[Rfam]
Nucleotides: 359
Base pairs, nucleotide, nucleotide: 001355002354003353004352005351006350007349008348010346011344012324013323014322015321016320017319018318020039021038023036024035025034026033027032044342045341046340048339049338050337051336052335053224054223055222056221060260061259062258063257065220066219067218068217069216070084071083072082073081074080085099086097087096088095089094100215101214105213106212107209108208109207121156122155123152124151125150126149127148128147129146130145131144164182165181167179168178169177184204185202186201187200188199191196228281229280230279231277238271239270240269241268242267243266251265252264253263254262255261288307289306290305291304292303293302294301295300
Number, partner (000 for none) and nucleotide at each position: 001355u002354a003353a004352g005351u006350a007349a008348g009000c010346c011344a012324g013323a014322c015321a016320a017319u018318c019000g020039c021038u022000g023036c024035u025034g026033u027032a028000u029000a030000a031000u032027u033026a034025c035024a036023g037000g038021a039020g040000a041000g042000g043000a044342a045341a046340g047000u048339c049338c050337g051336a052335g053224c054223u055222u056221c057000a058000u059000a060260g061259g062258g063257c064000a065220g066219g067218g068217u069216g070084c071083u072082g073081g074080g075000u076000a077000a078000u079000a080074c081073c082072c083071a084070g085099u086097c087096a088095g089094g090000g091000u092000g093000a094089c095088c096087u097086g098000a099085a100215g101214g102000a103000a104000a105213g106212u107209g108208c109207a110000a111000c112000a113000g114000a115000a116000a117000u118000a119000u120000a121156c122155c123152g124151c125150u126149g127148a128147a129146g130145c131144a132000a133000c134000a135000a136000g137000a138000a139000a140000u141000u142000a143000u144131u145130g146129c147128u148127u149126c150125a151124g152123u153000a154000a155122g156121g157000a158000u159000g160000g161000a162000a163000a164182g165181g166000c167179g168178a169177g170000g171000u172000a173000a174000g175000a176000g177169c178168u179167c180000a181165c182164c183000a184204g185202c186201g187200c188199a189000u190000u191196g192000g193000u194000g195000a196191c197000u198000u199188u200187g201186c202185g203000g204184c205000u206000a207109u208108g209107u210000a211000a212106a213105c214101c215100c216069c217068a218067c219066c220065u221056g222055a223054a224053g225000c226000a227000a228281g229280a230279u231277c232000g233000a234000a235000u236000a237000g238271g239270a240269a241268a242267g243266c244000a245000u246000a247000u248000u249000a250000a251265a252264a253263a254262g255261u256000g257063g258062c259061c260060c261255g262254c263253u264252u265251u266243g267242c268241u269240u270239u271238c272000g273000g274000g275000u276000a277231g278000u279230a280229u281228c282000g283000c284000u285000g286000g287000a288307g289306c290305c291304u292303a293302u294301u295300g296000g297000u298000a299000a300295c301294a302293a303292u304291a305290g306289g307288c308000c309000u310000a311000g312000a313000u314000a315000g316000a317000u318018g319017a320016u321015u322014g323013u324012c325000u326000a327000a328000u329000a330000c331000a332000g333000a334000a335052c336051u337050c338049g339048g340046c341045u342044u343000a344011u345000a346010g347000a348008c349007u350006u351005a352004c353003u354002u355001a356000c357000c358000c359000a
The record is a 359-nucleotide sequence from Clostridium kluyveri, which matches "Bacterial RNase P class A" in Rfam. It is annotated as a ribozyme. The family's consensus secondary structure is taken from published work. From the family's description: Ribonuclease P (RNase P) is a ubiquitous endoribonuclease, found in archaea, bacteria and eukarya as well as chloroplasts and mitochondria.